[Rfam]
RNA sequence: GCGGACGGUGAUGUCCGCUUGGGAUGUAGCCUUGAAGGCUGAACCGUUAA
Numbered sequence: 001g002c003g004g005a006c007g008g009u010g011a012u013g014u015c016c017g018c019u020u021g022g023g024a025u026g027u028a029g030c031c032u033u034g035a036a037g038g039c040u041g042a043a044c045c046g047u048u049a050a
Base pairs, nucleotide, nucleotide: 001018002017003016004015005014006013007012020046021045022044028040029039030038031037032036

Background
This 50-nucleotide RNA sequence belongs to the Rfam family "eL15-Euryarchaeota ribosomal protein leader". It is annotated as a cis-regulatory leader.